[Rfam]
RNA sequence: GCCCUUUUCAUCGGCUGCGGGAACGCCUAUAUCUCCCCUGCCGUCGCAAGGCGGAUAUGGCAAUAAACUGUCGGUGUAAUAAACCUAUUGGACCCGGGGGCGGUACCCGGCGCCUCCACCAAAAACCGGCCUGAAGGGUGACUGGAAACAGGACGCCCGAACGGCGAAAUGCCUUGAGCGGCCGGCUUUUGAUGGGGGCGAAAUAGGAUCGACAAGGGCGUAAAGAUCGAACUUUUGCUCGGCAUUGUACCACCGUUAUCGGGCUUAAACAGUAGUUGCAAACGACAACUAUGCGGAAGCUCGUCUCGCUGCUUAAUCGCGGUGUGACACUUCAAAUCAAGUCCUUCCGGUUCGCACCGUAAGGCGGGGUUCGGAGGUACCUGGCAACAGAAACCUCCACU
Numbered sequence: 001g002c003c004c005u006u007u008u009c010a011u012c013g014g015c016u017g018c019g020g021g022a023a024c025g026c027c028u029a030u031a032u033c034u035c036c037c038c039u040g041c042c043g044u045c046g047c048a049a050g051g052c053g054g055a056u057a058u059g060g061c062a063a064u065a066a067a068c069u070g071u072c073g074g075u076g077u078a079a080u081a082a083a084c085c086u087a088u089u090g091g092a093c094c095c096g097g098g099g100g101c102g103g104u105a106c107c108c109g110g111c112g113c114c115u116c117c118a119c120c121a122a123a124a125a126c127c128g129g130c131c132u133g134a135a136g137g138g139u140g141a142c143u144g145g146a147a148a149c150a151g152g153a154c155g156c157c158c159g160a161a162c163g164g165c166g167a168a169a170u171g172c173c174u175u176g177a178g179c180g181g182c183c184g185g186c187u188u189u190u191g192a193u194g195g196g197g198g199c200g201a202a203a204u205a206g207g208a209u210c211g212a213c214a215a216g217g218g219c220g221u222a223a224a225g226a227u228c229g230a231a232c233u234u235u236u237g238c239u240c241g242g243c244a245u246u247g248u249a250c251c252a253c254c255g256u257u258a259u260c261g262g263g264c265u266u267a268a269a270c271a272g273u274a275g276u277u278g279c280a281a282a283c284g285a286c287a288a289c290u291a292u293g294c295g296g297a298a299g300c301u302c303g304u305c306u307c308g309c310u311g312c313u314u315a316a317u318c319g320c321g322g323u324g325u326g327a328c329a330c331u332u333c334a335a336a337u338c339a340a341g342u343c344c345u346u347c348c349g350g351u352u353c354g355c356a357c358c359g360u361a362a363g364g365c366g367g368g369g370u371u372c373g374g375a376g377g378u379a380c381c382u383g384g385c386a387a388c389a390g391a392a393a394c395c396u397c398c399a400c401u
Stems, first nucleotide, its partner, number of pairs: 041054004059239005071230005084218003088215003094110005111200007240255003247264001250262002367382004373398006

A member of the RNA family "Alphaproteobacteria transfer-messenger RNA" from Rhizobium sp. Leaf371, 401 nucleotides long. Taxonomically the source falls in Rhizobium (Bacteria, Pseudomonadota, Alphaproteobacteria, Rhizobiaceae). Rfam links the family to the GO term RNA catabolic process. It scores 294 bits against the family's covariance model. About the family: Bacterial tmRNA, also known as 10Sa RNA or SsrA, is named for its dual tRNA and mRNA-like properties. Its role is to liberate the mRNA from a stalled ribosome. To accomplish this part of the tmRNA is used as a reading frame that ends in a translation stop signal. The broken mRNA is replaced in the ribosome by the tmRNA and translation of the tmRNA leads to addition of a proteolysis tag to the incomplete protein enabling recognition by a protease. It is annotated as a non-coding RNA gene.